[Rfam]
RNA sequence: AUAAUGAUACUCCUGUACUGCAGUUGUGUGAGAUACCACACGAUGGUGAAAUUCCAGUGA
Numbered sequence: 001a002u003a004a005u006g007a008u009a010c011u012c013c014u015g016u017a018c019u020g021c022a023g024u025u026g027u028g029u030g031a032g033a034u035a036c037c038a039c040a041c042g043a044u045g046g047u048g049a050a051a052u053u054c055c056a057g058u059g060a
Stems, first nucleotide, its partner, number of pairs: 012057001013023004024043003028039003044056003